Alphaproteobacterial ar15: a 96-nucleotide RNA sequence from Aquamicrobium lusatiense. Rfam 15.1 lists 316 matches to the family in 177 species. The organism belongs to Aquamicrobium, within Bacteria. The pairing is the family consensus, mapped onto this sequence. For this family Rfam cites "A survey of sRNA families in alpha-proteobacteria" (del Val et al., RNA Biol, 2012).
[Rfam]
RNA sequence: GUGUCGGGUGUUCUCCUCCCAUUGCGCCCGGCACGUUCCCCUCUGGAAGGUUUUAACUUUCCAUGCUUGGCCGGGCCUUUAGGUCCGGCCUUUUUU
Numbered sequence: 001g002u003g004u005c006g007g008g009u010g011u012u013c014u015c016c017u018c019c020c021a022u023u024g025c026g027c028c029c030g031g032c033a034c035g036u037u038c039c040c041c042u043c044u045g046g047a048a049g050g051u052u053u054u055a056a057c058u059u060u061c062c063a064u065g066c067u068u069g070g071c072c073g074g075g076c077c078u079u080u081a082g083g084u085c086c087g088g089c090c091u092u093u094u095u096u
Stems, first nucleotide, its partner, number of pairs: 001034005007028003044063007069090009